[Rfam]
Nucleotides: 097
Stems, first nucleotide, its partner, number of pairs: 018083008030045004055073006
Number, partner (000 for none) and nucleotide at each position: 001000u002000u003000u004000u005000c006000a007000u008000a009000a010000u011000u012000a013000g014000u015000c016000c017000u018083u019082a020081c021080u022079u023078a024077u025076a026000u027000a028000u029000c030045g031044u032043c033042g034000u035000a036000a037000u038000u039000g040000g041000u042033c043032g044031a045030c046000a047000g048000u049000u050000u051000c052000u053000a054000c055073c056072u057071g058070a059069u060068a061000c062000c063000g064000u065000a066000a067000a068060u069059a070058u071057c072056a073055g074000a075000c076025u077024a078023u079022g080021a081020g082019u083018a084000a085000a086000a087000a088000a089000g090000u091000a092000c093000g094000c095000u096000g097000u